[Rfam]
RNA: Small nucleolar RNA SNORD69
Organism: Anthoscopus minutus
RNA sequence: UACACAAAGCACAUGAUGACAAAACACUGAAACUGACUGUGUGAAGUAAUUCAAUCCAACACUGAGCUUUGUGUC
Numbered sequence: 001u002a003c004a005c006a007a008a009g010c011a012c013a014u015g016a017u018g019a020c021a022a023a024a025c026a027c028u029g030a031a032a033c034u035g036a037c038u039g040u041g042u043g044a045a046g047u048a049a050u051u052c053a054a055u056c057c058a059a060c061a062c063u064g065a066g067c068u069u070u071g072u073g074u075c
Stems, first nucleotide, its partner, number of pairs: 002074009